[Rfam]
RNA sequence: CCGCGGUGCAUUGCUGUUGCAUUGCACGUGUGUGAGGCGGGUGCAGUGCCUCGGCAGUGCAGCCCGG
Number, nucleotide and partner (000 for none) at each position: 001c067002c066003g065004c000005g000006g063007u061008g060009c059010a058011u057012u056013g055014c054015u053016g052017u000018u000019g049020c000021a047022u046023u045024g044025c043026a042027c041028g000029u000030g000031u000032g000033u000034g000035a000036g000037g000038c000039g000040g000041g027042u026043g025044c024045a023046g022047u021048g000049c019050c000051u000052c016053g015054g014055c013056a012057g011058u010059g009060c008061a007062g000063c006064c000065c003066g002067g001
This 67-nucleotide sequence from Macaca mulatta belongs to the Rfam family "mir-33 microRNA precursor family". Pairs were carried over by alignment from the consensus structure, which was predicted with PFOLD. It is one of the family's seed sequences. The family has 73 seed sequences and 1,467 matches in Rfam 15.1. Rfam links the family to the GO terms gene silencing by miRNA and RISC complex. The organism belongs to Macaca, within Eukaryota.